[Rfam]
RNA sequence: CUGGUGCUGCGGGGUGCGUUAGGCUGGUAAAAUCCCUGGGGCCAAUAAUCUUCUUUAGGGAGCUGUCCCUGCCGGGAUCGUGGUCUCGGUAUAUGGCGCCCACCUGCUUAUGCAGGCCGCAAGAGGACUUUGAGCCGACGGCUGCCGCGGCACCACG
Numbered sequence: 001c002u003g004g005u006g007c008u009g010c011g012g013g014g015u016g017c018g019u020u021a022g023g024c025u026g027g028u029a030a031a032a033u034c035c036c037u038g039g040g041g042c043c044a045a046u047a048a049u050c051u052u053c054u055u056u057a058g059g060g061a062g063c064u065g066u067c068c069c070u071g072c073c074g075g076g077a078u079c080g081u082g083g084u085c086u087c088g089g090u091a092u093a094u095g096g097c098g099c100c101c102a103c104c105u106g107c108u109u110a111u112g113c114a115g116g117c118c119g120c121a122a123g124a125g126g127a128c129u130u131u132g133a134g135c136c137g138a139c140g141g142c143u144g145c146c147g148c149g150g151c152a153c154c155a156c157g
Base pairs, nucleotide, nucleotide: 002155003154004153005152006151007150008149009148010147011146013143014142015141017140018139019138034125036123037122038120040118041117042116043115058101059100060099062097063096064095065094066093071090072089073088074087075086076085077084
RNA: 6S / SsrS RNA